Source information
The family of this 138-nucleotide sequence from Mesobacillus campisalis is "Ribosomal protein L10 leader". Rfam classes the family as a cis-regulatory leader. Rfam describes the family as follows. This family is a putative r-protein leader autoregulatory structure found in B. subtilis and other low-GC Gram-positive bacteria. For this family Rfam cites "Diverse mechanisms for regulating ribosomal protein synthesis in Escherichia coli" (Zengel and Lindahl, Prog Nucleic Acid Res Mol Biol, 1994). Gene Ontology term of the family: regulation of gene expression.
RNA sequence: AAUAAAAUAACAUUUGUACCGCAGACAGCAGGUGCCGAAAGGCUUAAUCUCCUGCCGAGGUCAUACGAUAGAUUUACACGAUACACUAUUGUAUACUCCCUCCAUGUCUGUUUGACCUGGAGGUUUUUUAUUGCCUGG
Dot-bracket structure: ...........................(((((.(((....))).......)))))...........................................((((((.(((.....))).))))))...............